A member of the RNA family "pan motif" from Alkaliphilus peptidifermentans, 87 nucleotides long.
RNA sequence: AGGAUGGUAUCAUUCAAAUGAGCUAUACCUAUCAAACUAAAAUUUAAUUUUGUUUCUGCUCAAAGCCUAGAGGUCUGAGACAGAGAA
Numbered sequence: 001a002g003g004a005u006g007g008u009a010u011c012a013u014u015c016a017a018a019u020g021a022g023c024u025a026u027a028c029c030u031a032u033c034a035a036a037c038u039a040a041a042a043u044u045u046a047a048u049u050u051u052g053u054u055u056c057u058g059c060u061c062a063a064a065g066c067c068u069a070g071a072g073g074u075c076u077g078a079g080a081c082a083g084a085g086a087a
Base pairs, nucleotide, nucleotide: 001030002029003028004026005025006024007023008022010021011020056083057082058081059079060078061077062076065074066073067072
The base pairs follow the family's consensus structure, which is taken from published work. A search with the family's covariance model found it, with a score of 47 bits. The family's RNA type in Rfam is cis-regulatory element.